[Rfam]
Shown here is a 54-nucleotide RNA sequence from Megalops atlanticus, a member of the family "UnaL2 LINE 3' element".
Rfam classes the family as a cis-regulatory element.

RNA sequence: AGUUAUAAUCUAUGUAAGUUGCUCUGGAUCAGAGCAUCUGCUAAAUGUCUGUAA
Number, nucleotide and partner (000 for none) at each position: 001a000002g000003u000004u000005a000006u000007a000008a000009u000010c000011u000012a000013u043014g041015u040016a039017a000018g000019u000020u036021g035022c034023u033024c032025u031026g000027g000028a000029u000030c000031a025032g024033a023034g022035c021036a020037u000038c000039u016040g015041c014042u000043a013044a000045a000046u000047g000048u000049c000050u000051g000052u000053a000054a000